RNA: Bacillaceae-1 RNA
RNA sequence: UUCAAAGGAUGAACGGCUAAAGGCGUGCCGUCCCUGGCACAACGCCGCUCUGACCUACAUCCUGUAGG
Numbered sequence: 001u002u003c004a005a006a007g008g009a010u011g012a013a014c015g016g017c018u019a020a021a022g023g024c025g026u027g028c029c030g031u032c033c034c035u036g037g038c039a040c041a042a043c044g045c046c047g048c049u050c051u052g053a054c055c056u057a058c059a060u061c062c063u064g065u066a067g068g
Base pairs, nucleotide, nucleotide: 011050012049014047015046016045017044025040026039027038028037029036054068055067056066057065058064